The record is a 128-nucleotide RNA from Flavobacteriaceae bacterium 144Ye, which matches "Bacteroidete tryptophan peptide leader RNA" in Rfam.
It scores 77 bits against the family's covariance model.
The family's RNA type in Rfam is cis-regulatory leader.
Taxonomically the source falls in Flavobacteriaceae (Bacteria, Bacteroidota, Flavobacteriia, Flavobacteriales).

RNA sequence: UUGACCCAACAAACAAAAACAUGAACACAAUUUUAAAUAAUACUUGGUGGUGGAUGUCUCGAAACUCAAUUUUCGUGAACUAAUCCCUAUUAGUAUAUUUAAAACUAAAAAUAUCAAAAAGGCUUGUC
Numbered sequence: 001u002u003g004a005c006c007c008a009a010c011a012a013a014c015a016a017a018a019a020c021a022u023g024a025a026c027a028c029a030a031u032u033u034u035a036a037a038u039a040a041u042a043c044u045u046g047g048u049g050g051u052g053g054a055u056g057u058c059u060c061g062a063a064a065c066u067c068a069a070u071u072u073u074c075g076u077g078a079a080c081u082a083a084u085c086c087c088u089a090u091u092a093g094u095a096u097a098u099u100u101a102a103a104a105c106u107a108a109a110a111a112u113a114u115c116a117a118a119a120a121g122g123c124u125u126g127u128c
Stems, first nucleotide, its partner, number of pairs: 036100002040096005046090001049087002052084001056081001057079001058077001060075002063072002